[Rfam]
RNA sequence: AAUGAGUUGUUUGCGCUUUUCAUUAUAGAUCAUAUGGGACUUUUUCAUACAUAAAAAGACUCCAUAAUCUCUGAUUGGGGAUUUACCCACUACAGAAAUUAUAGAGCC
Numbered sequence: 001a002a003u004g005a006g007u008u009g010u011u012u013g014c015g016c017u018u019u020u021c022a023u024u025a026u027a028g029a030u031c032a033u034a035u036g037g038g039a040c041u042u043u044u045u046c047a048u049a050c051a052u053a054a055a056a057a058g059a060c061u062c063c064a065u066a067a068u069c070u071c072u073g074a075u076u077g078g079g080g081a082u083u084u085a086c087c088c089a090c091u092a093c094a095g096a097a098a099u100u101a102u103a104g105a106g107c108c
Stems, first nucleotide, its partner, number of pairs: 001024006009016002027042002030039002058108001060106003064102005070096002075092001077090001079088002